This 87-nucleotide RNA sequence from Streptococcus phage Javan166 belongs to the Rfam family "S. pyogenes small RNA 779816". Lineage of the source: Viruses > Duplodnaviria > Heunggongvirae > Uroviricota > Caudoviricetes. A reference for the family is Le Rhun et al. (2016), "RNA sequencing uncovers antisense RNAs and novel small RNAs in Streptococcus pyogenes", RNA Biol.
RNA sequence: GUAAAAGCCCUCUUAAAAAAGGAUUUUACUAUACUGGAAUUCGCCCUACGCUCGGAGUCGCCAAACUUUGAGAGCGUGGGGCUUUUU
Numbered sequence: 001g002u003a004a005a006a007g008c009c010c011u012c013u014u015a016a017a018a019a020a021g022g023a024u025u026u027u028a029c030u031a032u033a034c035u036g037g038a039a040u041u042c043g044c045c046c047u048a049c050g051c052u053c054g055g056a057g058u059c060g061c062c063a064a065a066c067u068u069u070g071a072g073a074g075c076g077u078g079g080g081g082c083u084u085u086u087u
Stems, first nucleotide, its partner, number of pairs: 004027004009022003013019002043082011054069005